[Rfam]
RNA sequence: AGCUGGGCCAGGCAAGUGUAUUCAGGGUGAACUCCGCCAGGUCGGGAACGAAGCAACGGUAGCUUUUGUUGCAUUGUGUCUGUGUUCAGCUACU
Numbered sequence: 001a002g003c004u005g006g007g008c009c010a011g012g013c014a015a016g017u018g019u020a021u022u023c024a025g026g027g028u029g030a031a032c033u034c035c036g037c038c039a040g041g042u043c044g045g046g047a048a049c050g051a052a053g054c055a056a057c058g059g060u061a062g063c064u065u066u067u068g069u070u071g072c073a074u075u076g077u078g079u080c081u082g083u084g085u086u087c088a089g090c091u092a093c094u
Stems, first nucleotide, its partner, number of pairs: 001091005009082004013076001015075006024066005034059003042051003
RNA: Bacterial small signal recognition particle RNA